Background
sok antitoxin (CssrC): a 172-nucleotide RNA from Alicyclobacillaceae bacterium I2511. Rfam links the family to the GO term mRNA binding. The match comes from Rfam's covariance-model search (97 bits). On this family, see Kawano et al., Mol Microbiol 2007: "An antisense RNA controls synthesis of an SOS-induced toxin evolved from an antitoxin". Also identified in Shigella as CssrC. Taxonomically the source falls in Alicyclobacillaceae (Bacteria, Bacillati, Bacilli, Caryophanales). Rfam classes the family as an antitoxin RNA.

[Rfam]
RNA sequence: CGGCGCUUGAGGCUUUUUGCCUCAUGACGUGAAGGUGGGUUGUUACCGUGUUGUGUGGCAGAAAGCAGAAAGCCCCGUAGUUAAUUUUCAUUAACCCACGAGGCCCACUGUAUGUCUAACCAACACCAGUAUGGCCUCUUACCGUGCAAAUUGCAAGGAGGAGUAAACCAUG
Numbered sequence: 001c002g003g004c005g006c007u008u009g010a011g012g013c014u015u016u017u018u019g020c021c022u023c024a025u026g027a028c029g030u031g032a033a034g035g036u037g038g039g040u041u042g043u044u045a046c047c048g049u050g051u052u053g054u055g056u057g058g059c060a061g062a063a064a065g066c067a068g069a070a071a072g073c074c075c076c077g078u079a080g081u082u083a084a085u086u087u088u089c090a091u092u093a094a095c096c097c098a099c100g101a102g103g104c105c106c107a108c109u110g111u112a113u114g115u116c117u118a119a120c121c122a123a124c125a126c127c128a129g130u131a132u133g134g135c136c137u138c139u140u141a142c143c144g145u146g147c148a149a150a151u152u153g154c155a156a157g158g159a160g161g162a163g164u165a166a167a168c169c170a171u172g
Stems, first nucleotide, its partner, number of pairs: 002075002005073004012066010023055001026052006077099002080095006100138005109129001113125002143163001